[Rfam]
The family of this 89-nucleotide RNA sequence from Jatropha curcas is "MIR397 microRNA precursor family". It scores 83 bits against the family's covariance model. For this family Rfam cites "High throughput approaches reveal splicing of primary microRNA transcripts and tissue specific expression of mature microRNAs in Vitis vinifera" (Mica et al., BMC Genomics, 2009). Rfam links the family to the GO terms miRNA-mediated post-transcriptional gene silencing and RISC complex.
RNA sequence: UGCAGAAACAUCAUUGAGUGCAGCGUUGAUGAAUUCUCGGUUGGUUGGUCAAUUUGAUUUCACCAACGCUGCACUCAAUCAUGUUUUUA
Dot-bracket structure: .....((((((.((((((((((((((((.(((...........................))).)))))))))))))))).))))))...
Background
Taxonomically the source falls in Jatropha (Eukaryota, Embryophyta, Euphyllophyta, Gunneridae).